Shown here is a 131-nucleotide RNA sequence from Cyanoderma ruficeps, a member of the family "Small Cajal body specific RNA 23". Gene Ontology terms of the family: nucleolus, RNA processing and Cajal body. It is annotated as a small Cajal body RNA. The base pairs follow the family's consensus structure, which was predicted with RNAfold. A reference for the family is Darzacq et al. (2002), "Cajal body-specific small nuclear RNAs: a novel class of 2'-O-methylation and pseudouridylation guide RNAs", EMBO J.
[Rfam]
RNA sequence: AUGCUCACAAAAACACUUAUCCUGCCAUGUGGCUGUGAUGGGUGGUGGGAAAACGUGAGCUAGAGGACAAGUAUUGCUUUGGGAGUGUCCUGUUCCAGGCCACAUGGGACACUACAGUUUCCAAUACAACA
Numbered sequence: 001a002u003g004c005u006c007a008c009a010a011a012a013a014c015a016c017u018u019a020u021c022c023u024g025c026c027a028u029g030u031g032g033c034u035g036u037g038a039u040g041g042g043u044g045g046u047g048g049g050a051a052a053a054c055g056u057g058a059g060c061u062a063g064a065g066g067a068c069a070a071g072u073a074u075u076g077c078u079u080u081g082g083g084a085g086u087g088u089c090c091u092g093u094u095c096c097a098g099g100c101c102a103c104a105u106g107g108g109a110c111a112c113u114a115c116a117g118u119u120u121c122c123a124a125u126a127c128a129a130c131a
Stems, first nucleotide, its partner, number of pairs: 003060006013043002018040004025032002071127001073125004079117003084113008092103002